[Rfam]
RNA sequence: GGUGCAAAUUUGAGGUCACAGCAGAAGCACUUGCAGUGCAGCUUAUCAGAUUCCAACAAAUUUGUGAAUUCUGCU
Numbered sequence: 001g002g003u004g005c006a007a008a009u010u011u012g013a014g015g016u017c018a019c020a021g022c023a024g025a026a027g028c029a030c031u032u033g034c035a036g037u038g039c040a041g042c043u044u045a046u047c048a049g050a051u052u053c054c055a056a057c058a059a060a061u062u063u064g065u066g067a068a069u070u071c072u073g074c075u
Stems, first nucleotide, its partner, number of pairs: 015042002020075007027039003047064006